[Rfam]
RNA sequence: GGAGCAAUUUCUGGAGAGAACGCAUUUGCGUCGCCGAAGGGUUCACAAUCUCAGGCAAAAGGACAGAAAAGUAACA
Number, nucleotide and partner (000 for none) at each position: 001g000002g000003a000004g000005c000006a000007a000008u069009u068010u067011c066012u065013g064014g000015a000016g000017a000018g000019a000020a031021c030022g029023c028024a000025u000026u000027u000028g023029c022030g021031u020032c000033g056034c055035c054036g052037a051038a000039g000040g050041g049042u048043u000044c000045a000046c000047a000048a042049u041050c040051u037052c036053a000054g035055g034056c033057a000058a000059a000060a000061g000062g000063a000064c013065a012066g011067a010068a009069a008070a000071g000072u000073a000074a000075c000076a000
This 76-nucleotide sequence from Ureibacillus endophyticus belongs to the Rfam family "Glycine riboswitch aptamer".